[Rfam]
RNA sequence: GGACCAUGAGGCGAUGUGAAUGGGCUCAAGCUAGUCACUGGGCUCAGGAAAGUCCCCGGGCCCAACAUCUGCGGAGACGCAGGCUCGGUAACGGGUAAACUUCAAGUGGAGUUUGUUACACCCUUCGAGGUGUGGGCUGAGACGCGUGCGGAGCCCAAUUCAAAUUCCGCUGAAGCAAUUGGCCGUCAUCACAGUCAUUCACAUGGUCUUUCACGACCAACAGAACGGGGCUUACGACCUUGUGGUC
Numbered sequence: 001g002g003a004c005c006a007u008g009a010g011g012c013g014a015u016g017u018g019a020a021u022g023g024g025c026u027c028a029a030g031c032u033a034g035u036c037a038c039u040g041g042g043c044u045c046a047g048g049a050a051a052g053u054c055c056c057c058g059g060g061c062c063c064a065a066c067a068u069c070u071g072c073g074g075a076g077a078c079g080c081a082g083g084c085u086c087g088g089u090a091a092c093g094g095g096u097a098a099a100c101u102u103c104a105a106g107u108g109g110a111g112u113u114u115g116u117u118a119c120a121c122c123c124u125u126c127g128a129g130g131u132g133u134g135g136g137c138u139g140a141g142a143c144g145c146g147u148g149c150g151g152a153g154c155c156c157a158a159u160u161c162a163a164a165u166u167c168c169g170c171u172g173a174a175g176c177a178a179u180u181g182g183c184c185g186u187c188a189u190c191a192c193a194g195u196c197a198u199u200c201a202c203a204u205g206g207u208c209u210u211u212c213a214c215g216a217c218c219a220a221c222a223g224a225a226c227g228g229g230g231c232u233u234a235c236g237a238c239c240u241u242g243u244g245g246u247c
Base pairs, nucleotide, nucleotide: 002247003246004245005244006243007242008241009240010239011238014204015203016202017201018200019199021046022045023044024043025042026041027040050233051232052231054230055229056228057227070081071080072079073078083096084095085094086093087092100175101174105171106170107169108168109167110166124164125163127161134156135155136154137153144149206217207216208215

Shown here is a 247-nucleotide sequence from Abrus precatorius, a member of the family "RNase MRP". By type it is a ribozyme. Rfam links the family to the GO terms rRNA processing, ribonuclease MRP complex and ribonuclease MRP activity. A search with the family's covariance model found it, with a score of 75 bits.